Small nucleolar RNA Z266: an 89-nucleotide sequence from Panicum miliaceum. NCBI's taxonomy places the organism under Eukaryota, Embryophyta, commelinids, Panicodae, Panicum sect. Panicum. Rfam links the family to the GO terms nucleolus and RNA processing. It is annotated as a C/D-box small nucleolar RNA. It scores 92 bits against the family's covariance model. The base pairs follow the family's consensus structure, which was predicted with PFOLD.
[Rfam]
RNA sequence: CCCUGGCAGGGGUGAUGAAUCAAUUAGAUGUGCGAAGUUACCUAAUGAGUUUAACUUUUGAGGCAUACAAUUUGUCUGACCUGCCAAGG
Numbered sequence: 001c002c003c004u005g006g007c008a009g010g011g012g013u014g015a016u017g018a019a020u021c022a023a024u025u026a027g028a029u030g031u032g033c034g035a036a037g038u039u040a041c042c043u044a045a046u047g048a049g050u051u052u053a054a055c056u057u058u059u060g061a062g063g064c065a066u067a068c069a070a071u072u073u074g075u076c077u078g079a080c081c082u083g084c085c086a087a088g089g
Stems, first nucleotide, its partner, number of pairs: 001089002004086007